The family of this 115-nucleotide sequence from Caloramator sp. E03 is "FMN riboswitch aptamer (RFN element)". The family's consensus secondary structure is taken from published work. Rfam's curators write: The RFN element is a highly conserved domain that is found frequently in the 5'-untranslated regions of prokaryotic mRNAs that encode for flavin mononucleotide (FMN) biosynthesis and transport proteins.
Nucleotides: 115
Base pairs, nucleotide, nucleotide: 003113005111006110007109008108009107010106017029018028019027031095032094033085034084035048036047037046038045043083044082053059065081066080067079068078069077087098088097089096
Number, partner (000 for none) and nucleotide at each position: 001000u002000a003113u004000a005111a006110u007109c008108u009107u010106c011000a012000g013000g014000g015000c016000a017029a018028g019027g020000u021000g022000a023000a024000a025000u026000u027019c028018c029017u030000g031095a032094c033085c034084g035048g036047c037046g038045g039000u040000a041000u042000a043083g044082c045038c046037c047036g048035c049000g050000a051000g052000c053059c054000g055000a056000a057000a058000g059053g060000u061000a062000u063000g064000a065081u066080c067079c068078g069077g070000u071000g072000a073000a074000a075000c076000u077069c078068c079067g080066g081065a082044g083043c084034c085033g086000a087098c088097a089096g090000u091000a092000a093000a094032g095031u096089c097088u098087g099000g100000a101000u102000g103000g104000a105000a106010g107009a108008a109007g110006a111005u112000a113003a114000a115000a